Rfam assigns this 35-nucleotide RNA sequence from Hymenobacter cellulosilyticus to the family "DUF805b RNA". It is annotated as a cis-regulatory element. Pairs were carried over by alignment from the consensus structure, which is taken from published work. The family is grouped with related families in Rfam's "DUF805 clan". The source organism's lineage runs through Bacteria, Pseudomonadati, Bacteroidota, Cytophagia and Hymenobacter.
RNA sequence: AAAGCGGCUGCCGAAAAGCUUAAAUAGAGUAGGCG
Numbered sequence: 001a002a003a004g005c006g007g008c009u010g011c012c013g014a015a016a017a018g019c020u021u022a023a024a025u026a027g028a029g030u031a032g033g034c035g
Base pairs, nucleotide, nucleotide: 002021003020004019005018010034011033012032